Rfam assigns this 76-nucleotide RNA from Saimiri boliviensis to the family "mir-320 microRNA precursor family". The family has 38 seed sequences and 659 matches in Rfam 15.1. A reference for the family is Berezikov et al. (2006), "Many novel mammalian microRNA candidates identified by extensive cloning and RAKE analysis", Genome Res.

[Rfam]
RNA sequence: AACCUAAUGGGCCUUCUCUUCCCAGUUCUUACUGGAGUCGGGAAAAGCUGGGUUGAGAGGGCAAUUAAAACAACAA
Number, nucleotide and partner (000 for none) at each position: 001a000002a000003c000004c000005u000006a000007a000008u000009g000010g000011g000012c000013c000014u059015u058016c057017u056018c055019u000020u000021c052022c051023c050024a049025g048026u000027u000028c000029u044030u043031a000032c041033u040034g039035g000036a000037g000038u000039c034040g033041g032042g000043a030044a029045a000046a000047g000048c025049u024050g023051g022052g021053u000054u000055g018056a017057g016058a015059g014060g000061g000062c000063a000064a000065u000066u000067a000068a000069a000070a000071c000072a000073a000074c000075a000076a000